[Rfam]
This 119-nucleotide RNA sequence belongs to the Rfam family "RT-5 RNA".

RNA sequence: AAACUUCUGCAAUAGGGUUUAGUAUAUUGCAUCUCUUAAAUCGAGAUUAAUUGCUUUGCAGAUAGCAGUAAUAUAUAUGACCUUGUCGUAAUCGAUUACAUCGAUUCUCAAUUUUUUCU
Numbered sequence: 001a002a003a004c005u006u007c008u009g010c011a012a013u014a015g016g017g018u019u020u021a022g023u024a025u026a027u028u029g030c031a032u033c034u035c036u037u038a039a040a041u042c043g044a045g046a047u048u049a050a051u052u053g054c055u056u057u058g059c060a061g062a063u064a065g066c067a068g069u070a071a072u073a074u075a076u077a078u079g080a081c082c083u084u085g086u087c088g089u090a091a092u093c094g095a096u097u098a099c100a101u102c103g104a105u106u107c108u109c110a111a112u113u114u115u116u117u118c119u
Stems, first nucleotide, its partner, number of pairs: 006062006014084003018080002022076008052067004091105006
Annotation
The family's consensus secondary structure is taken from published work.